[Rfam]
RNA sequence: GGGUGUCCGCACAUCGGCGCGGGCAGGGAAUAGCGCUGGUCGGGCCGCCAGCG
Numbered sequence: 001g002g003g004u005g006u007c008c009g010c011a012c013a014u015c016g017g018c019g020c021g022g023g024c025a026g027g028g029a030a031u032a033g034c035g036c037u038g039g040u041c042g043g044g045c046c047g048c049c050a051g052c053g
Stems, first nucleotide, its partner, number of pairs: 005024006012017001034053007
The record is a 53-nucleotide RNA sequence, which matches "nhaA-I RNA" in Rfam. Acidobacteria, Alphaproteobacteria, Betaproteobacteria and Gammaproteobacteria, Verrucomicrobia, cand. division NC10. Rfam's curators put it in the seed alignment. The family's consensus secondary structure is taken from published work.